This 95-nucleotide RNA from Mariniplasma anaerobium belongs to the Rfam family "Bacterial small signal recognition particle RNA". NCBI's taxonomy places the organism under Bacteria, Mollicutes, Acholeplasmatales, Acholeplasmataceae, Mariniplasma. It scores 54 bits against the family's covariance model. Rfam classes the family as a non-coding RNA gene.
RNA sequence: CAAGCAUCAUCAUUCAAUAGUAACUUGUGAACCUGGUCAGAUCUUGAUCGAAGCAGCCAUAAGCAUGUUUACUAUGUGGGUGAUGAUGCUUGAUA
Numbered sequence: 001c002a003a004g005c006a007u008c009a010u011c012a013u014u015c016a017a018u019a020g021u022a023a024c025u026u027g028u029g030a031a032c033c034u035g036g037u038c039a040g041a042u043c044u045u046g047a048u049c050g051a052a053g054c055a056g057c058c059a060u061a062a063g064c065a066u067g068u069u070u071a072c073u074a075u076g077u078g079g080g081u082g083a084u085g086a087u088g089c090u091u092g093a094u095a
Stems, first nucleotide, its partner, number of pairs: 004089011015076001017075006023068002026065003034059004042051002